[Rfam]
RNA sequence: UUUCUCCUGCUGUGUGCGUUGAAUAGGUCUAUGUUGAGCCAACAUUGAUACAAUAGGAACUUAACUCUUCAUGUGGAGCGUUGACUAGAGCACGACUCGGGUACCAGAAGCAAUGAAGGAGAUUUCCGCCCGUGGUAGAACGGGUUCAAAUAUACCUUGGAAACGGCAUGGUGGGGAUUAA
Number, nucleotide and partner (000 for none) at each position: 001u000002u000003u000004c000005u176006c175007c174008u173009g172010c171011u170012g169013u168014g167015u166016g000017c165018g164019u163020u000021g000022a000023a000024u000025a000026g000027g000028u000029c000030u000031a153032u152033g151034u150035u148036g147037a146038g145039c144040c143041a000042a000043c000044a000045u000046u000047g000048a000049u000050a000051c000052a000053a000054u000055a000056g127057g126058a125059a000060c000061u122062u121063a000064a000065c118066u000067c000068u000069u116070c115071a114072u112073g111074u110075g000076g000077a000078g000079c000080g104081u103082u000083g000084a000085c000086u000087a000088g000089a000090g000091c000092a000093c000094g000095a000096c000097u000098c000099g000100g000101g000102u000103a081104c080105c000106a000107g000108a000109a000110g074111c073112a072113a000114u071115g070116a069117a000118g065119g000120a000121g062122a061123u000124u000125u058126c057127c056128g000129c000130c000131c000132g000133u000134g000135g000136u000137a000138g000139a000140a000141c000142g000143g040144g039145u038146u037147c036148a035149a000150a034151u033152a032153u031154a000155c000156c000157u000158u000159g000160g000161a000162a000163a019164c018165g017166g015167c014168a013169u012170g011171g010172u009173g008174g007175g006176g005177a000178u000179u000180a000181a000